About this RNA
The record is a 105-nucleotide RNA sequence from Aliidiomarina soli, which matches "Ribosomal S15 leader" in Rfam. Rfam classes the family as a cis-regulatory leader. For this family Rfam cites "Pseudoknot and translational control in the expression of the S15 ribosomal protein" (Benard et al., Biochimie, 1996). Gene Ontology term of the family: regulation of translation, ncRNA-mediated. About the family: The E. coli Ribosomal S15 gene 5' UTR can form two alternative structures. One that is a series of three hairpins, The other includes a pseudoknot.
[Rfam]
RNA sequence: AUCCCCGGCUGAAUUAGUGAUCGGUUGGGCUAAUUUUUGGAGAUAACUAUGUCACUAAGUGCAGAAGUAAAAGCUCAGAUCGUUAAAGAUUAUGGCCGUGUUGAA
Number, nucleotide and partner (000 for none) at each position: 001a000002u000003c000004c000005c000006c000007g026008g025009c024010u023011g022012a021013a000014u000015u000016a000017g000018u000019g000020a000021u012022c011023g010024g009025u008026u007027g000028g000029g000030c000031u000032a000033a000034u000035u000036u059037u058038u057039g056040g055041a000042g053043a000044u000045a000046a000047c000048u000049a000050u000051g000052u000053c042054a000055c040056u039057a038058a037059g036060u000061g000062c000063a000064g000065a000066a000067g000068u000069a000070a000071a000072a000073g000074c000075u000076c000077a000078g000079a000080u000081c000082g000083u000084u000085a000086a000087a000088g000089a000090u000091u000092a000093u000094g000095g000096c000097c000098g000099u000100g000101u000102u000103g000104a000105a000